[Rfam]
RNA sequence: AUCUGACCGGGGCGCGUGCAGGCGCUCCGGCCGCAGAACGACAGACACCGUGCCACGGAACAAGUGUGCACAUAUGGGCGUU
Number, nucleotide and partner (000 for none) at each position: 001a000002u000003c000004u033005g032006a000007c030008c029009g028010g027011g026012g025013c024014g023015c022016g000017u000018g000019c000020a000021g000022g015023c014024g013025c012026u011027c010028c009029g008030g007031c000032c005033g004034c000035a000036g000037a000038a000039c000040g000041a000042c000043a000044g000045a000046c000047a000048c000049c000050g071051u070052g069053c068054c066055a065056c064057g000058g000059a000060a000061c000062a000063a000064g056065u055066g054067u000068g053069c052070a051071c050072a000073u000074a000075u000076g000077g000078g000079c000080g000081u000082u000
A member of the RNA family "nrdJ RNA" from Streptomyces benahoarensis, 82 nucleotides long. It scores 58 bits against the family's covariance model. By type it is a small RNA. The base pairs follow the family's consensus structure, which is taken from published work.